Small nucleolar RNA SNORD125: a 97-nucleotide RNA from Neotoma lepida. By type it is a C/D-box small nucleolar RNA. The family's consensus secondary structure was predicted with WAR.

RNA sequence: AACCUUGGCAGCCCCUCUUGAUGAUUCCUCUUCCUGAGCGGCUCCAGUGAUGAGCAAACUGGGCCUCUAAGAAGUUGACUGAAGGGGCAGUUUCUUC
Numbered sequence: 001a002a003c004c005u006u007g008g009c010a011g012c013c014c015c016u017c018u019u020g021a022u023g024a025u026u027c028c029u030c031u032u033c034c035u036g037a038g039c040g041g042c043u044c045c046a047g048u049g050a051u052g053a054g055c056a057a058a059c060u061g062g063g064c065c066u067c068u069a070a071g072a073a074g075u076u077g078a079c080u081g082a083a084g085g086g087g088c089a090g091u092u093u094c095u096u097c
Base pairs, nucleotide, nucleotide: 007092008091009090011088012087013086014085015084
The source organism's lineage runs through Eukaryota, Bilateria, Chordata, Eutheria and Neotoma. Clan: SNORD61 clan.